Shown here is an 83-nucleotide RNA from Peribacillus saganii, a member of the family "c-di-GMP-I riboswitch aptamer".
RNA sequence: UCCUAAAUAUGGCAAACUGCCUGAAAAGGCAGGACGCAAAACUAUAGGGGCUAAAUCUUUUGACACGCCAGCCAGUUGCAAUC
Numbered sequence: 001u002c003c004u005a006a007a008u009a010u011g012g013c014a015a016a017c018u019g020c021c022u023g024a025a026a027a028g029g030c031a032g033g034a035c036g037c038a039a040a041a042c043u044a045u046a047g048g049g050g051c052u053a054a055a056u057c058u059u060u061u062g063a064c065a066c067g068c069c070a071g072c073c074a075g076u077u078g079c080a081a082u083c
Stems, first nucleotide, its partner, number of pairs: 012037002017032006040077004047073002049069003056063002

It scores 68 bits against the family's covariance model.